RNA sequence: UAAUGAAAUAAGCCUAAUUCCAAUGGAAACGGGGGGCCCAAUAACUGGGGCGAAAUUCGAAAGAAUAGGGUUAAGUUCUCUUAAAUCCUAGCCCGACAGCUAACCUCGUAGGCUUUUAAGGGAGAAGUU
Numbered sequence: 001u002a003a004u005g006a007a008a009u010a011a012g013c014c015u016a017a018u019u020c021c022a023a024u025g026g027a028a029a030c031g032g033g034g035g036g037c038c039c040a041a042u043a044a045c046u047g048g049g050g051c052g053a054a055a056u057u058c059g060a061a062a063g064a065a066u067a068g069g070g071u072u073a074a075g076u077u078c079u080c081u082u083a084a085a086u087c088c089u090a091g092c093c094c095g096a097c098a099g100c101u102a103a104c105c106u107c108g109u110a111g112g113c114u115u116u117u118a119a120g121g122g123a124g125a126a127g128u129u
Stems, first nucleotide, its partner, number of pairs: 011114004018028003029109006039047002048094003056065003068088004

A member of the RNA family "c-di-AMP riboswitch aptamer (ydaO/yuaA leader)" from Thermoanaerobacterium thermosaccharolyticum, 129 nucleotides long. Pairs were carried over by alignment from the consensus structure. The source organism's lineage runs through Bacteria, Bacillati, Thermoanaerobacteraceae, Thermoanaerobacterium and Thermoanaerobacterium thermosaccharolyticum.